Rfam assigns this 93-nucleotide sequence from Liparis tanakae to the family "mir-217 microRNA precursor family". Rfam links the family to the GO terms miRNA-mediated post-transcriptional gene silencing and RISC complex. The organism belongs to Liparis, within Eukaryota. The literature on the family includes a 2003 paper in Science by Lim et al., "Vertebrate microRNA genes". The family has 28 seed sequences and 698 matches in Rfam 15.1. A search with the family's covariance model found it, with a score of 79 bits. The family's consensus secondary structure was predicted with RNAalifold.

RNA sequence: UCUGAUGAUAUGUGGAUGAUACUGCAUCAGGAACUGAUUGGCUGGUGCUUAAUUGCCAACAGUACCUGAUGCAUUGCCUUCAGCGUUGAAAGA
Numbered sequence: 001u002c003u004g005a006u007g008a009u010a011u012g013u014g015g016a017u018g019a020u021a022c023u024g025c026a027u028c029a030g031g032a033a034c035u036g037a038u039u040g041g042c043u044g045g046u047g048c049u050u051a052a053u054u055g056c057c058a059a060c061a062g063u064a065c066c067u068g069a070u071g072c073a074u075u076g077c078c079u080u081c082a083g084c085g086u087u088g089a090a091a092g093a
Stems, first nucleotide, its partner, number of pairs: 023073005029067003033063004039058003
Dot-bracket structure: ......................(((((.(((.((((..(((..............))).)))).))).)))))....................